[Rfam]
RNA sequence: UGUGUGAUUUAGGUAGUUUCGAGUUGUUGGGCUGCAAGUUUAAUAUCACAGGAACCUGAAACUGCCUGAAUGACGCC
Numbered sequence: 001u002g003u004g005u006g007a008u009u010u011a012g013g014u015a016g017u018u019u020c021g022a023g024u025u026g027u028u029g030g031g032c033u034g035c036a037a038g039u040u041u042a043a044u045a046u047c048a049c050a051g052g053a054a055c056c057u058g059a060a061a062c063u064g065c066c067u068g069a070a071u072g073a074c075g076c077c
Base pairs, nucleotide, nucleotide: 003075004074005073007071008070009069010068011067012066013065014064015063016062017061018060019059023055024054025053027051028050029049031047

The record is a 77-nucleotide RNA from Conger conger, which matches "mir-196 microRNA precursor family" in Rfam.
The match comes from Rfam's covariance-model search (66 bits).
Pairs were carried over by alignment from the consensus structure, which was predicted with PFOLD.
Lineage of the source: Eukaryota > Actinopteri > Anguilliformes > Congridae > Conger.